Rfam assigns this 134-nucleotide RNA sequence from Bemisia tabaci to the family "Small nucleolar RNA snoR639/H1". From the family's description: snoR639 or snoH1 belongs to the H/ACA class of snoRNAs which are thought to guide the sites of modification of uridines to pseudouridines. snoH1 is found in an intron of the mfl gene in Drosophila. For this family Rfam cites "RNomics in Drosophila melanogaster: identification of 66 candidates for novel non-messenger RNAs" (Yuan et al., Nucleic Acids Res, 2003). The source organism's lineage runs through Eukaryota, Ecdysozoa, Hexapoda, Insecta and Bemisia. Pairs were carried over by alignment from the consensus structure. The match comes from Rfam's covariance-model search (53 bits).
RNA sequence: ACCCCACAAUUUUAAGCCGGCUGGAUAGUAUUUUUCACUAUUCCAGUGUGCUCUGCGUGGGAACAUCAACUGAUUUCAUGUGUAUGAUGACGUAUUUCUCUUGGAUAGUCAUCAAAGGACGAUUUCGAACAAUA
Dot-bracket structure: ...................((((((................))))))...........................((.(......(((((((..((((.....)))).)))))))..........).))......